[Rfam]
RNA sequence: GUACUCUGGUUUCCCUUCAAAUCACGCAUAAAUCUUUCGCCUUUUACUAAAGAUUUCCGUGGAGGGGAACAAUUGAUGAGUCUAUAGACUAAUUUUUUGUAUACCCGGCGCAAGCUGGGUC
Numbered sequence: 001g002u003a004c005u006c007u008g009g010u011u012u013c014c015c016u017u018c019a020a021a022u023c024a025c026g027c028a029u030a031a032a033u034c035u036u037u038c039g040c041c042u043u044u045u046a047c048u049a050a051a052g053a054u055u056u057c058c059g060u061g062g063a064g065g066g067g068a069a070c071a072a073u074u075g076a077u078g079a080g081u082c083u084a085u086a087g088a089c090u091a092a093u094u095u096u097u098u099g100u101a102u103a104c105c106c107g108g109c110g111c112a113a114g115c116u117g118g119g120u121c
Base pairs, nucleotide, nucleotide: 003081004080005079006078009070010069011068012067013066014065015064016063017062018061019060030056031055032054033053034052035051036050037049103120104119105118106117107116108115
Rfam assigns this 121-nucleotide RNA from Apis mellifera to the family "U5 spliceosomal RNA". Rfam classes the family as a spliceosomal small nuclear RNA.